Notes: A member of the RNA family "BsrC" from Sporosarcina sp. HYO08, 85 nucleotides long.

[Rfam]
RNA sequence: UGAAACCUAAACGACGUAUGCCCUACCUCUCAUACAUCCUUACGACUCCGAAGUCGAUCCAGUGUGAUUAGUUCUUAAUGAUUCA
Numbered sequence: 001u002g003a004a005a006c007c008u009a010a011a012c013g014a015c016g017u018a019u020g021c022c023c024u025a026c027c028u029c030u031c032a033u034a035c036a037u038c039c040u041u042a043c044g045a046c047u048c049c050g051a052a053g054u055c056g057a058u059c060c061a062g063u064g065u066g067a068u069u070a071g072u073u074c075u076u077a078a079u080g081a082u083u084c085a
Stems, first nucleotide, its partner, number of pairs: 035066002039062002043056005
Dot-bracket structure: ..................................((..((..(((((....)))))....))..))...................

Taxonomically the source falls in Sporosarcina (Bacteria, Bacillota, Caryophanales, Caryophanaceae). By type it is a small RNA. Pairs were carried over by alignment from the consensus structure, which was predicted with CMfinder. The 301 nucleotide sequence from Kouji Nakamura has been trimmed to a highly conserved ~85 nucleotide long core to form this family.